[Rfam]
RNA sequence: GUAACUUCCGCUAGUAGGGUGUCAUCCCAGUCUGGGAUCCAGAAAAAUUGAUUAUGUACUAUACAACAUUUUCGAUCAAAAGCUGGAUUCCAGACUGGAAUGACAUCAUAGGGGUUUGCAUGA
Numbered sequence: 001g002u003a004a005c006u007u008c009c010g011c012u013a014g015u016a017g018g019g020u021g022u023c024a025u026c027c028c029a030g031u032c033u034g035g036g037a038u039c040c041a042g043a044a045a046a047a048u049u050g051a052u053u054a055u056g057u058a059c060u061a062u063a064c065a066a067c068a069u070u071u072u073c074g075a076u077c078a079a080a081a082g083c084u085g086g087a088u089u090c091c092a093g094a095c096u097g098g099a100a101u102g103a104c105a106u107c108a109u110a111g112g113g114g115u116u117u118g119c120a121u122g123a
Stems, first nucleotide, its partner, number of pairs: 011118001013116003020105006027098016

A member of the RNA family "Wolbachia sRNA 46" from Trichonephila clavata, 123 nucleotides long. Pairs were carried over by alignment from the consensus structure. The literature on the family includes a 2014 paper in Proc Natl Acad Sci U S A by Mayoral et al., "Wolbachia small noncoding RNAs and their role in cross-kingdom communications".